[Rfam]
The family of this 82-nucleotide RNA sequence from Corynebacterium glyciniphilum is "L31-Corynebacteriaceae ribosomal protein leader". The sequence is in the family's curated seed alignment. Rfam classes the family as a cis-regulatory leader.

RNA sequence: ACCCAGGCACGACUCGCCGUCCCGGUCGCCGACUACGGCGGUCAGGAUGAGGGGGACCGACCUGGCGCACAACCCUGAGGGA
Numbered sequence: 001a002c003c004c005a006g007g008c009a010c011g012a013c014u015c016g017c018c019g020u021c022c023c024g025g026u027c028g029c030c031g032a033c034u035a036c037g038g039c040g041g042u043c044a045g046g047a048u049g050a051g052g053g054g055g056a057c058c059g060a061c062c063u064g065g066c067g068c069a070c071a072a073c074c075c076u077g078a079g080g081g082a
Stems, first nucleotide, its partner, number of pairs: 002065001004064004013055003017051001018049005